Small nucleolar RNA SNORD53/SNORD92: a 78-nucleotide sequence from Chara braunii.
RNA sequence: CUGCGGUGAUGAAUCAAUCGGUUUCGAUCUUUGUAGCCGAGGAAUCUGUGAAGAAAUCUUCCUUGGCUGUCUGAGCAG
Number, nucleotide and partner (000 for none) at each position: 001c078002u077003g076004c075005g000006g000007u000008g000009a000010u000011g000012a000013a000014u000015c000016a000017a000018u000019c000020g000021g000022u000023u000024u000025c000026g000027a000028u000029c000030u000031u000032u000033g000034u000035a000036g000037c000038c000039g000040a000041g000042g000043a000044a000045u000046c000047u000048g000049u000050g000051a000052a000053g000054a000055a000056a000057u000058c000059u000060u000061c000062c000063u000064u000065g000066g000067c000068u000069g000070u000071c000072u000073g000074a000075g004076c003077a002078g001
Rfam classes the family as a C/D-box small nucleolar RNA.